[Rfam]
RNA sequence: GGGUCAUUUCUAAGAGAGCUUAUGAGACUAAAACCAGGAGCUCUUAAUGCUGUGACCUAAAAUUGGAGUUCUCCUUACGAUGUGAUAGACACUCAAUAGUGCUCUUUUGUCCUGAGGAGAUAUAGGA
Numbered sequence: 001g002g003g004u005c006a007u008u009u010c011u012a013a014g015a016g017a018g019c020u021u022a023u024g025a026g027a028c029u030a031a032a033a034c035c036a037g038g039a040g041c042u043c044u045u046a047a048u049g050c051u052g053u054g055a056c057c058u059a060a061a062a063u064u065g066g067a068g069u070u071c072u073c074c075u076u077a078c079g080a081u082g083u084g085a086u087a088g089a090c091a092c093u094c095a096a097u098a099g100u101g102c103u104c105u106u107u108u109g110u111c112c113u114g115a116g117g118a119g120a121u122a123u124a125g126g127a
Stems, first nucleotide, its partner, number of pairs: 002057006014045008023037001026035001070120005077113001079111002085105001087103002090101004